Record summary: This 74-nucleotide RNA from Xenopus tropicalis belongs to the Rfam family "GAIT element". Rfam 15.1 lists 121 matches to the family in 113 species. Rfam links the family to the GO term negative regulation of translation. By type it is a cis-regulatory element. From the family's description: This family represents a cis-acting element in the 3'-UTR of the ceruloplasmin (Cp) gene called gamma interferon inhibitor of translation (GAIT). It scores 38 bits against the family's covariance model.
RNA sequence: CUAUAGUAAAGUGUAACUAUAGGCUGUUACUAUAGACUAUAACUAUAGACUGUAACUAUAGGCUGUAACUAUAG
Number, nucleotide and partner (000 for none) at each position: 001c074002u073003a072004u071005a070006g069007u000008a000009a000010a064011g063012u062013g000014u000015a000016a000017c000018u000019a000020u000021a000022g000023g053024c052025u000026g050027u049028u048029a000030c000031u000032a000033u045034a044035g043036a000037c000038u000039a000040u000041a000042a000043c035044u034045a033046u000047a000048g028049a027050c026051u000052g024053u023054a000055a000056c000057u000058a000059u000060a000061g000062g012063c011064u010065g000066u000067a000068a000069c006070u005071a004072u003073a002074g001